[Rfam]
RNA sequence: CACGUUCAUCCUAAGGGACGGAAGUAGGCUGAAAAGCUGAAGGAACGCACC
Dot-bracket structure: ..(((((.(((....)))..[.....(((......)))....)))))]...
A member of the RNA family "Glutamine riboswitch aptamer (glnA leader)", 51 nucleotides long. The base pairs follow the family's consensus structure, which is taken from published work.